The record is a 75-nucleotide RNA from Leptonema illini, which matches "Fluoride riboswitch aptamer (crcB RNA motif)" in Rfam.
A reference for the family is Baker et al. (2012), "Widespread genetic switches and toxicity resistance proteins for fluoride", Science.
Lineage of the source: Bacteria > Pseudomonadati > Leptospiraceae > Leptonema > Leptonema illini.

Nucleotides: 075
Base pairs, nucleotide, nucleotide: 010026011025012024013023016066017065018064019063020062021061035056036055038053
Number, partner (000 for none) and nucleotide at each position: 001000u002000u003000u004000a005000g006000c007000u008000c009000a010026g011025g012024c013023g014000a015000u016066g017065g018064g019063g020062u021061u022000c023013c024012g025011c026010c027000u028000u029000a030000u031000a032000a033000c034000c035056g036055c037000c038053c039000u040000u041000c042000u043000c044000u045000u046000u047000u048000g049000a050000a051000g052000c053038g054000u055036g056035c057000u058000g059000a060000u061021g062020a063019c064018u065017c066016c067000u068000a069000c070000c071000a072000c073000u074000c075000a